RNA sequence: GAAGAUGGCUGGAUGGCCGCGACAUUGUCGAGGAACGUCCGGACUCCACAGGACACGGUGGUGGCUAACGGCCACCCGGGGUGACUCGCGGGAUAGUGCCACAGAAAACAAACCGCCCGUUUUUGGGUAAGGGUGCAAAGGUGGUGUAAGAGACCACCGCGGCCCAGGUGACUGGGCCGGCAGGGUAAACCCCACCGGGAGCAAAACCAAGCAGCGUGCCGGGCUGUCCGUCCAAAGCGCGCGGGUAGGUUGCUAGAGGCCGCUGGUAACAACGGCCCGAGAUAGAUGGCCAUCGAAGGGGCUUCGCCCUGGAACAGAAUCCGGCUUACAGGCCGUCUUCUCCG
Numbered sequence: 001g002a003a004g005a006u007g008g009c010u011g012g013a014u015g016g017c018c019g020c021g022a023c024a025u026u027g028u029c030g031a032g033g034a035a036c037g038u039c040c041g042g043a044c045u046c047c048a049c050a051g052g053a054c055a056c057g058g059u060g061g062u063g064g065c066u067a068a069c070g071g072c073c074a075c076c077c078g079g080g081g082u083g084a085c086u087c088g089c090g091g092g093a094u095a096g097u098g099c100c101a102c103a104g105a106a107a108a109c110a111a112a113c114c115g116c117c118c119g120u121u122u123u124u125g126g127g128u129a130a131g132g133g134u135g136c137a138a139a140g141g142u143g144g145u146g147u148a149a150g151a152g153a154c155c156a157c158c159g160c161g162g163c164c165c166a167g168g169u170g171a172c173u174g175g176g177c178c179g180g181c182a183g184g185g186u187a188a189a190c191c192c193c194a195c196c197g198g199g200a201g202c203a204a205a206a207c208c209a210a211g212c213a214g215c216g217u218g219c220c221g222g223g224c225u226g227u228c229c230g231u232c233c234a235a236a237g238c239g240c241g242c243g244g245g246u247a248g249g250u251u252g253c254u255a256g257a258g259g260c261c262g263c264u265g266g267u268a269a270c271a272a273c274g275g276c277c278c279g280a281g282a283u284a285g286a287u288g289g290c291c292a293u294c295g296a297a298g299g300g301g302c303u304u305c306g307c308c309c310u311g312g313a314a315c316a317g318a319a320u321c322c323g324g325c326u327u328a329c330a331g332g333c334c335g336u337c338u339u340c341u342c343c344g
Stems, first nucleotide, its partner, number of pairs: 001340010011329001012294007020030004035327001037325001039324005044201004051229004056197005061075005076090001077088004091192002096190002098186003113132002115128005140158006159181001160179008205251004214242006221233004258277005264271002
The family of this 344-nucleotide sequence from Actinomyces sp. S4-C9 is "Bacterial RNase P class A". It scores 305 bits against the family's covariance model. Rfam links the family to the GO terms dimeric ribonuclease P complex, tRNA processing and ribonuclease P activity. Rfam's curators write: Ribonuclease P (RNase P) is a ubiquitous endoribonuclease, found in archaea, bacteria and eukarya as well as chloroplasts and mitochondria. Its best characterised activity is the generation of mature 5'-ends of tRNAs by cleaving the 5'-leader elements of precursor-tRNAs. Cellular RNase Ps are ribonucleoproteins.